[Rfam]
RNA sequence: GGGAGGUGAUGAGUGGUCAUUACUCGCAUUUAAGUAUGCGAGAUGGGGUGUCUGCCUAAAGCUUUACGACAAUUAGGCACCUCAAAUCUUAUAACCAUGUGAUCCC
Numbered sequence: 001g002g003g004a005g006g007u008g009a010u011g012a013g014u015g016g017u018c019a020u021u022a023c024u025c026g027c028a029u030u031u032a033a034g035u036a037u038g039c040g041a042g043a044u045g046g047g048g049u050g051u052c053u054g055c056c057u058a059a060a061g062c063u064u065u066a067c068g069a070c071a072a073u074u075a076g077g078c079a080c081c082u083c084a085a086a087u088c089u090u091a092u093a094a095c096c097a098u099g100u101g102a103u104c105c106c
Stems, first nucleotide, its partner, number of pairs: 001106004014097004023042005044084004049079004064072001
Rfam assigns this 106-nucleotide RNA sequence from Lactuca sativa to the family "Small nucleolar RNA Z279/snoR105/snoR108". The family is grouped with related families in Rfam's "snoU13 clan". Rfam describes the family as follows. This family includes the plant snoRNAs known as Z279, snoR105 and snoR108. A reference for the family is Marker et al. (2002), "Experimental RNomics: identification of 140 candidates for small non-messenger RNAs in the plant Arabidopsis thaliana", Curr Biol. The family's RNA type in Rfam is C/D-box small nucleolar RNA. Gene Ontology terms of the family: nucleolus and RNA processing.